[Rfam]
RNA sequence: CACGAACAAGGCAAACCUAUCGAAAGGUAGGGACGCAAAGCUUCCGGCCUAAGAGUAGGCAGUUUUAUUUUUAAAGCAGUCAACUUAUGGUAGCGGGGUUGCCGAUG
Numbered sequence: 001c002a003c004g005a006a007c008a009a010g011g012c013a014a015a016c017c018u019a020u021c022g023a024a025a026g027g028u029a030g031g032g033a034c035g036c037a038a039a040g041c042u043u044c045c046g047g048c049c050u051a052a053g054a055g056u057a058g059g060c061a062g063u064u065u066u067a068u069u070u071u072u073a074a075a076g077c078a079g080u081c082a083a084c085u086u087a088u089g090g091u092a093g094c095g096g097g098g099u100u101g102c103c104g105a106u107g
Base pairs, nucleotide, nucleotide: 001107003104004103011036012035016031017030018029019028020027021026034093039100040099041098042097044096045095046094047091048090049089
Dot-bracket structure: (.((......((...((((((....))))))..[))..((((.((((((.......................................))).])))))))..))..)